[Rfam]
Nucleotides: 132
Stems, first nucleotide, its partner, number of pairs: 003057003016044011068124003073120001082109001084107001086105006
Number, partner (000 for none) and nucleotide at each position: 001000c002000u003057g004056u005055g006000a007000a008000u009000a010000u011000u012000c013000u014000c015000c016044c017043u018042g019041u020040u021039u022038u023037g024036a025035u026034u027000u028000u029000g030000u031000a032000a033000u034026a035025a036024u037023c038022a039021g040020g041019a042018c043017a044016g045000g046000u047000u048000a049000a050000a051000c052000a053000u054000u055005c056004a057003c058000c059000a060000u061000a062000u063000u064000g065000a066000g067000a068124c069123c070122a071000u072000g073120c074000a075000u076000c077000u078000g079000u080000c081000c082109c083000a084107a085000g086105a087104c088103a089102u090101a091100g092000u093000u094000c095000u096000u097000u098000c099000c100091c101090u102089a103088u104087g105086u106000g107084u108000g109082g110000u111000u112000u113000u114000a115000u116000a117000a118000a119000u120073g121000a122070u123069g124068g125000c126000a127000a128000u129000a130000a131000g132000c

Rfam assigns this 132-nucleotide RNA sequence from Sciurus carolinensis to the family "Small nucleolar RNA SNORA72". The family's consensus secondary structure was predicted with PFOLD. The organism belongs to Sciurus, within Eukaryota. The literature on the family includes a 1997 paper in Genes Dev by Ganot et al., "The family of box ACA small nucleolar RNAs is defined by an evolutionarily conserved secondary structure and ubiquitous sequence elements essential for RNA accumulation". Rfam classes the family as an H/ACA-box small nucleolar RNA.